[Rfam]
RNA sequence: UUUUAAUAAAGGCAAACUUAUUGAAAGAUAGGGGCGCAAAGCCGCGAGUCUAAGGCAUUGAGCUAGGAUAGUCGGGCUGCUAAA
Dot-bracket structure: ...........((...((((((....))))))...))..((((.((((((....((.....))...)))..)))))))......
Shown here is an 84-nucleotide RNA from Bacillus benzoevorans, a member of the family "c-di-GMP-I riboswitch aptamer".
The family is grouped with related families in Rfam's "c-di-GMP_I riboswitch clan".
The organism belongs to Bacillus, within Bacteria.